[Rfam]
Rfam assigns this 72-nucleotide RNA sequence from Anguilla anguilla to the family "mir-126 microRNA precursor family". The literature on the family includes a 2005 paper in Nucleic Acids Res by Altuvia et al., "Clustering and conservation patterns of human microRNAs". The match comes from Rfam's covariance-model search (80 bits).

RNA sequence: UCACGGCUCAUUAUUACUUUUGGUACGCGCUGAGCUUCUCAAACUCGUACCGUGAGUAAUAAUGUGCUGCGG
Numbered sequence: 001u002c003a004c005g006g007c008u009c010a011u012u013a014u015u016a017c018u019u020u021u022g023g024u025a026c027g028c029g030c031u032g033a034g035c036u037u038c039u040c041a042a043a044c045u046c047g048u049a050c051c052g053u054g055a056g057u058a059a060u061a062a063u064g065u066g067c068u069g070c071g072g
Stems, first nucleotide, its partner, number of pairs: 009064010021052007029044001